RNA sequence: GGUCAUGAGUGCCAGCGCGUAACCCCGGUUUGCUGGCCGGCAACCCUCCUCCGCGGUGGGGUGCCCCGGGUGACGACCUGGCCGGAACCAGAUGGUCUCCGGCAAGCGCGGGAA
Dot-bracket structure: ((((....(.((((((....((......)).)))))))(((..(((.((.....))..))).))).........))))..(((((((((....))).))))))...........

A member of the RNA family "SAM (S-adenosyl methionine) riboswitch aptamer" from Sanguibacter sp. Leaf3, 114 nucleotides long. On this family, see Weinberg et al., RNA 2008: "The aptamer core of SAM-IV riboswitches mimics the ligand-binding site of SAM-I riboswitches". The family's consensus secondary structure is taken from published work. The source organism's lineage runs through Bacteria, Bacillati, Micrococcales, Sanguibacteraceae and Sanguibacter.